A member of the RNA family "RNA Staph. aureus H" from Staphylococcus sp. HGB0015, 122 nucleotides long. Taxonomically the source falls in Staphylococcus (Bacteria, Bacillota, Bacilli, Staphylococcaceae). The literature on the family includes a 2009 paper in Nucleic Acids Res by Geissmann et al., "A search for small noncoding RNAs in Staphylococcus aureus reveals a conserved sequence motif for regulation". The base pairs follow the family's consensus structure, which is taken from published work.
Nucleotides: 122
Base pairs, nucleotide, nucleotide: 002068003067004066005065006064007063008062009061023039024038027034041049042048080092081091082089094113095112096111097110098109099108100107
Number, partner (000 for none) and nucleotide at each position: 001000g002068u003067a004066c005065c006064u007063u008062c009061g010000a011000u012000a013000a014000u015000u016000a017000a018000u019000a020000c021000a022000u023039c024038u025000c026000u027034u028000a029000a030000u031000u032000a033000a034027a035000u036000u037000c038024a039023g040000u041049a042048u043000a044000c045000c046000c047000c048042a049041u050000a051000a052000u053000a054000u055000a056000u057000a058000c059000g060000a061009c062008g063007a064006a065005g066004g067003u068002a069000a070000u071000u072000u073000u074000u075000g076000a077000c078000u079000c080092c081091c082089u083000u084000u085000a086000g087000u088000u089082g090000a091081g092080g093000c094113c095112u096111g097110a098109a099108u100107g101000a102000u103000g104000c105000a106000g107100c108099a109098u110097u111096c112095a113094g114000a115000c116000c117000u118000c119000u120000u121000u122000u